[Rfam]
RNA sequence: GUGCCCAAAGUCCCUUAUCAUUCUCUUGUCCGGUGUUAUACUUAUCCGCUACUGGACGGAGAACUGAUAAGGGCCCAAGGGGUC
Numbered sequence: 001g002u003g004c005c006c007a008a009a010g011u012c013c014c015u016u017a018u019c020a021u022u023c024u025c026u027u028g029u030c031c032g033g034u035g036u037u038a039u040a041c042u043u044a045u046c047c048g049c050u051a052c053u054g055g056a057c058g059g060a061g062a063a064c065u066g067a068u069a070a071g072g073g074c075c076c077a078a079g080g081g082g083u084c
Base pairs, nucleotide, nucleotide: 012073013072014071015070016069017068018067019066020065021063022062023061024060025059026058029055030054

Record summary
The record is an 84-nucleotide RNA, which matches "mir-184 microRNA precursor family" in Rfam. The base pairs follow the family's consensus structure, which was predicted with PFOLD. The match comes from Rfam's covariance-model search (65 bits).